This 97-nucleotide sequence from Sphaerobolus stellatus belongs to the Rfam family "tRNA". Lineage of the source: Eukaryota > Opisthokonta > Phallomycetidae > Geastrales > Sphaerobolus stellatus. A search with the family's covariance model found it, with a score of 50 bits. Gene Ontology term of the family: triplet codon-amino acid adaptor activity. It is annotated as a transfer RNA. Transfer RNA (tRNA) molecules are approximately 80 nucleotides in length. The family's consensus secondary structure is taken from published work.

[Rfam]
RNA sequence: GGCGAGAUGGCCGAGUUGGUCUAAGGCGUGAGACUAAGGUCCUUUACAAUCUAAUCUCAUCUCUUCGGGGGCGUGGGUUCAAAUCCCACUCUCGUCA
Numbered sequence: 001g002g003c004g005a006g007a008u009g010g011c012c013g014a015g016u017u018g019g020u021c022u023a024a025g026g027c028g029u030g031a032g033a034c035u036a037a038g039g040u041c042c043u044u045u046a047c048a049a050u051c052u053a054a055u056c057u058c059a060u061c062u063c064u065u066c067g068g069g070g071g072c073g074u075g076g077g078u079u080c081a082a083a084u085c086c087c088a089c090u091c092u093c094g095u096c097a
Stems, first nucleotide, its partner, number of pairs: 001096007010027003029059005073089005